RNA sequence: CGAUGUGAGGGCGAUCUGGCUGCGACAUCUGUCACCCCAUUGAUCGCCAGGGUUGAUUCGGCUGAUCUGGCUGGCUAGGCGGGUGUCCCCUUCCUCCCUCACCGCUCCAUGUGCGUCCCUUCCGAAGCUGCGCGCUCGGUGGAAGAGGACGGCCAUCCCAGAUAGAAGGAGUGUACCGAUCUUCGGUCAAGGGCAUACGAUAGCUGCACUCCCCUGCUAGAACCUCCAAACAAGCUCAAGGUCCAUACAAUGAACGGUUGCAGGAACUGGGCCUGGCUAGUCUAGGGAAGAGAAGGACCAGGGGAGACAGGAGAGCAGCCUUCCAGUAUUU
Numbered sequence: 001c002g003a004u005g006u007g008a009g010g011g012c013g014a015u016c017u018g019g020c021u022g023c024g025a026c027a028u029c030u031g032u033c034a035c036c037c038c039a040u041u042g043a044u045c046g047c048c049a050g051g052g053u054u055g056a057u058u059c060g061g062c063u064g065a066u067c068u069g070g071c072u073g074g075c076u077a078g079g080c081g082g083g084u085g086u087c088c089c090c091u092u093c094c095u096c097c098c099u100c101a102c103c104g105c106u107c108c109a110u111g112u113g114c115g116u117c118c119c120u121u122c123c124g125a126a127g128c129u130g131c132g133c134g135c136u137c138g139g140u141g142g143a144a145g146a147g148g149a150c151g152g153c154c155a156u157c158c159c160a161g162a163u164a165g166a167a168g169g170a171g172u173g174u175a176c177c178g179a180u181c182u183u184c185g186g187u188c189a190a191g192g193g194c195a196u197a198c199g200a201u202a203g204c205u206g207c208a209c210u211c212c213c214c215u216g217c218u219a220g221a222a223c224c225u226c227c228a229a230a231c232a233a234g235c236u237c238a239a240g241g242u243c244c245a246u247a248c249a250a251u252g253a254a255c256g257g258u259u260g261c262a263g264g265a266a267c268u269g270g271g272c273c274u275g276g277c278u279a280g281u282c283u284a285g286g287g288a289a290g291a292g293a294a295g296g297a298c299c300a301g302g303g304g305a306g307a308c309a310g311g312a313g314a315g316c317a318g319c320c321u322u323c324c325a326g327u328a329u330u331u
Base pairs, nucleotide, nucleotide: 002107003106005102006101007100008099009098010097011096013093014092018090019089024087025086026085027084028083029082030081031080032079033078035074036073037070038069039068042067043066044065045064046062047061048060117173118169119168120167121165122139123138124137125136127135128134140162147158148157149156203319204318205317209315210314213311214310215309216308224306225305226304227303231302234299
Record summary:
7SK RNA: a 331-nucleotide sequence from Naja naja. The family's RNA type in Rfam is non-coding RNA gene. About the family: 7SK was discovered as an abundant small nuclear RNA in the mid-70s but a possible function has only recently been suggested. Two independent studies have found that 7SK RNA binds the CDK9/cyclin T complex (known as elongation factor P-TEFb). P-TEFb activates transcription by phosphorylating the C-terminal domain of RNA polymerase II. This process is negatively regulated by the 7SK RNP. The secondary structure of 7SK RNA shown here was proposed by Wasserman and Steitz on the basis of chemical modification and enzymatic cleavage experiments. This family contains a number of annotated pseudogenes and 7SK derived repeats. The family is grouped with related families in Rfam's "7SK clan". The family's consensus secondary structure is taken from published work. It scores 235 bits against the family's covariance model. On this family, see Blencowe, Curr Biol 2002: "Transcription: surprising role for an elusive small nuclear RNA".